[Rfam]
RNA sequence: CCUUUAUCAAGAGUGGCGGAGGGAUAGGCCCUGCGAUGCCCAGCAACCAGUUUCUUUUUUUGAAACCAAGGUGCUAAUUCCUACAGAUUUUUUAUCGGAUCUGACAGAUAAGGG
Numbered sequence: 001c002c003u004u005u006a007u008c009a010a011g012a013g014u015g016g017c018g019g020a021g022g023g024a025u026a027g028g029c030c031c032u033g034c035g036a037u038g039c040c041c042a043g044c045a046a047c048c049a050g051u052u053u054c055u056u057u058u059u060u061u062g063a064a065a066c067c068a069a070g071g072u073g074c075u076a077a078u079u080c081c082u083a084c085a086g087a088u089u090u091u092u093u094a095u096c097g098g099a100u101c102u103g104a105c106a107g108a109u110a111a112g113g114g
Stems, first nucleotide, its partner, number of pairs: 001114008013041001015040003021031003025083004042075004047071002050066005079106001084103006
A member of the RNA family "SAM riboswitch aptamer (S box leader)" from Kurthia sp. 11kri321, 114 nucleotides long.
Rfam 15.1 lists 9,625 matches to the family in 4,158 species.
The source organism's lineage runs through Bacteria, Bacillota, Caryophanales, Caryophanaceae and Kurthia.
From the family's description: The SAM riboswitch is found upstream of a number of genes which code for proteins involved in methionine or cysteine biosynthesis in Gram-positive bacteria. The SAM riboswitch acts at the level of transcription termination control. The predicted structure consists of a complex stem-loop region followed by a single stem loop terminator region.